A member of the RNA family "Mason-Pfizer monkey virus packaging signal" from Sciurus vulgaris, 290 nucleotides long. It scores 130 bits against the family's covariance model. The organism belongs to Sciurus, within Eukaryota. The family's RNA type in Rfam is cis-regulatory element. Rfam's curators write: This family represents a group of sequences that are related to the Mason-Pfizer monkey virus (MPMV) packaging signal. For this family Rfam cites "Mutational analysis of the predicted secondary RNA structure of the Mason-Pfizer monkey virus packaging signal" (Mustafa et al., Virus Res, 2004).
RNA sequence: UGGCGCCCAACUGUGUGGCUUUGGAUGCGAGGGAAUUCAUGAGGGAAGAGGUGUCUAAGUGUUUGGCCGAAGAAAAAGAAAAAAAAAAAAGUGAAAGUCAGUUCGACAAAGAUCGCCACAGGAAUCUGCCGCACCGUUCUUAUAGGUACAGUAGUGCGUAAAGGGACAAGAAUUAAGUAAGAAUAAAGUUUUUGUUAAGCAAUUAAAAGAAGGUUUAAAGACACGGGGAGUAAAGAUUAAGAGUAAUGAUCUUUUUAAGUUUUUUGACCUUAUUAUGGACACCUGUCUGU
Number, nucleotide and partner (000 for none) at each position: 001u000002g000003g000004c000005g000006c033007c032008c031009a000010a000011c000012u000013g028014u027015g026016u000017g000018g000019c000020u000021u000022u000023g000024g000025a000026u015027g014028c013029g000030a000031g008032g007033g006034a000035a000036u000037u000038c051039a000040u049041g000042a000043g000044g000045g000046a000047a000048g000049a040050g000051g038052u000053g000054u000055c000056u000057a000058a000059g000060u000061g000062u000063u000064u000065g000066g000067c000068c000069g000070a000071a000072g000073a000074a000075a000076a000077a000078g000079a000080a000081a000082a000083a000084a000085a000086a000087a000088a000089a000090a000091g000092u000093g000094a000095a000096a000097g000098u000099c000100a000101g000102u146103u000104c000105g000106a143107c000108a000109a000110a000111g000112a000113u000114c136115g000116c000117c000118a000119c131120a000121g129122g000123a000124a000125u000126c000127u000128g000129c121130c000131g119132c000133a000134c000135c000136g114137u000138u000139c000140u000141u000142a000143u106144a000145g000146g102147u000148a000149c000150a000151g000152u169153a000154g167155u166156g000157c165158g000159u163160a000161a000162a000163g159164g000165g157166a155167c154168a000169a152170g000171a000172a000173u000174u217175a216176a215177g000178u212179a000180a000181g000182a000183a000184u000185a000186a000187a000188g000189u000190u000191u000192u000193u000194g000195u000196u000197a000198a000199g000200c000201a000202a000203u000204u000205a000206a000207a000208a000209g000210a000211a000212g178213g000214u000215u176216u175217a174218a000219a000220g000221a000222c000223a000224c266225g265226g264227g263228g262229a261230g260231u259232a000233a000234a252235g251236a250237u249238u248239a247240a000241g000242a000243g000244u000245a000246a000247u239248g238249a237250u236251c235252u234253u000254u000255u000256u000257a000258a000259g231260u230261u229262u228263u227264u226265u225266g224267a000268c000269c000270u000271u000272a000273u000274u000275a290276u289277g288278g287279a286280c285281a000282c000283c000284u000285g280286u279287c278288u277289g276290u275